The family of this 48-nucleotide sequence is "DUF3800-XI RNA". Rfam classes the family as a small RNA. Rfam's curators write: Actinobacteria, Firmicutes, Proteobacteria, Spirochaetes (1 example).

RNA sequence: UGGUCUGGGCGAAAGUUCUUUGGACCACAGUAGGCGGGAAGAAUUCCC
Numbered sequence: 001u002g003g004u005c006u007g008g009g010c011g012a013a014a015g016u017u018c019u020u021u022g023g024a025c026c027a028c029a030g031u032a033g034g035c036g037g038g039a040a041g042a043a044u045u046c047c048c
Stems, first nucleotide, its partner, number of pairs: 001027006007018004